RNA sequence: GUCGAGGCUCCAUCUAUAAAUGGAUAAGAUUUUGGUCUUAAUGGAUACGAGUUUUUGAAAGUAAGGGGACAAUAAUCAAUUUCUUCUUCUAUUAAGAGGAUUGAUAUUGUUCCUUUA
Numbered sequence: 001g002u003c004g005a006g007g008c009u010c011c012a013u014c015u016a017u018a019a020a021u022g023g024a025u026a027a028g029a030u031u032u033u034g035g036u037c038u039u040a041a042u043g044g045a046u047a048c049g050a051g052u053u054u055u056u057g058a059a060a061g062u063a064a065g066g067g068g069a070c071a072a073u074a075a076u077c078a079a080u081u082u083c084u085u086c087u088u089c090u091a092u093u094a095a096g097a098g099g100a101u102u103g104a105u106a107u108u109g110u111u112c113c114u115u116u117a
Stems, first nucleotide, its partner, number of pairs: 009024005063115006070109005078101001081098005

The record is a 117-nucleotide RNA from Bauhinia brachycarpa, which matches "Plastid-psbA-1 3UTR RNA" in Rfam. A reference for the family is Richter et al. (2023), "Retrograde signaling in plants: A critical review focusing on the GUN pathway and beyond", Plant Commun. Rfam classes the family as a cis-regulatory element. Its Rfam clan is "Plastid-psbA 3UTR RNA clan". Rfam's curators put it in the seed alignment.